[Rfam]
RNA sequence: GACAGUUUGGCCGAGUGGUCUAAGGCGCCAGAUUUAGGCUCUGGUCCGAAAGGGCGUGGGUUCAAAUCCCACAGUUGUCA
Dot-bracket structure: (((((((..(((...........))).(((((.......)))))...........(((((.......)))))))))))).
The record is an 80-nucleotide sequence from Vitis rotundifolia, which matches "tRNA" in Rfam. From the family's description: Transfer RNA (tRNA) molecules are approximately 80 nucleotides in length.